RNA sequence: CAGGCAUGCUGGAGCUUCGCAGCGGCGCCCGGGACGACAAGCGCCCGACACCGUCAUAACAUCGGAGCUUAA
Numbered sequence: 001c002a003g004g005c006a007u008g009c010u011g012g013a014g015c016u017u018c019g020c021a022g023c024g025g026c027g028c029c030c031g032g033g034a035c036g037a038c039a040a041g042c043g044c045c046c047g048a049c050a051c052c053g054u055c056a057u058a059a060c061a062u063c064g065g066a067g068c069u070u071a072a
Stems, first nucleotide, its partner, number of pairs: 012070008023053003030047004035041001
ybhL leader: a 72-nucleotide RNA from Arminella tubonensis.
Taxonomically the source falls in Arminella (Bacteria, Pseudomonadati, Pseudomonadota, Hyphomicrobiales).
On this family, see Corbino et al., Genome Biol 2005: "Evidence for a second class of S-adenosylmethionine riboswitches and other regulatory RNA motifs in alpha-proteobacteria".
The pairing is the family consensus, mapped onto this sequence.
This family is a putative regulatory RNA structure that is found upstream of an uncharacterized membrane protein in alpha-proteobacteria.
The family's RNA type in Rfam is cis-regulatory leader.